Rfam assigns this 167-nucleotide part of an RNA from Sulfuricella denitrificans to the family "Bacterial large subunit ribosomal RNA".
Lineage of the source: Bacteria > Pseudomonadota > Sulfuricellaceae > Sulfuricella > Sulfuricella denitrificans.
A reference for the family is Yusupov et al. (2001), "Crystal structure of the ribosome at 5.5 A resolution", Science.
Its Rfam clan is "LSU clan".
RNA sequence: AGUGGGAGCCCCUGCUUUAAGCGCUUUGCGCUUUAGGCGGUGAGGAGUAAAGAGUGAGGAGUGAGGAGUGAGAGCGAAAGCUUUUGACCCCUCACUCCUCACUCCUCGCUCCUCACUGAUCUUAGAGCGUUUAAAGCAGGGGUGACUGCGUACCUUUUGUAUAAUGG
Numbered sequence: 001a002g003u004g005g006g007a008g009c010c011c012c013u014g015c016u017u018u019a020a021g022c023g024c025u026u027u028g029c030g031c032u033u034u035a036g037g038c039g040g041u042g043a044g045g046a047g048u049a050a051a052g053a054g055u056g057a058g059g060a061g062u063g064a065g066g067a068g069u070g071a072g073a074g075c076g077a078a079a080g081c082u083u084u085u086g087a088c089c090c091c092u093c094a095c096u097c098c099u100c101a102c103u104c105c106u107c108g109c110u111c112c113u114c115a116c117u118g119a120u121c122u123u124a125g126a127g128c129g130u131u132u133a134a135a136g137c138a139g140g141g142g143u144g145a146c147u148g149c150g151u152a153c154c155u156u157u158u159g160u161a162u163a164a165u166g167g
Stems, first nucleotide, its partner, number of pairs: 002149004008143021153166001155164001